[Rfam]
RNA sequence: AAAGGCUGGCACUGAAGCUAUAACUAAUAAAAUGAAAUUCCUCUUUGACUGGCCGAUAGAAAUAUCGGCCAUUUUUUU
Numbered sequence: 001a002a003a004g005g006c007u008g009g010c011a012c013u014g015a016a017g018c019u020a021u022a023a024c025u026a027a028u029a030a031a032a033u034g035a036a037a038u039u040c041c042u043c044u045u046u047g048a049c050u051g052g053c054c055g056a057u058a059g060a061a062a063u064a065u066c067g068g069c070c071a072u073u074u075u076u077u078u
Stems, first nucleotide, its partner, number of pairs: 007020004025030001050071009

A member of the RNA family "sroB RNA" from Rahnella aquatilis, 78 nucleotides long.
The family's RNA type in Rfam is small RNA.
The organism belongs to Rahnella aquatilis, within Bacteria.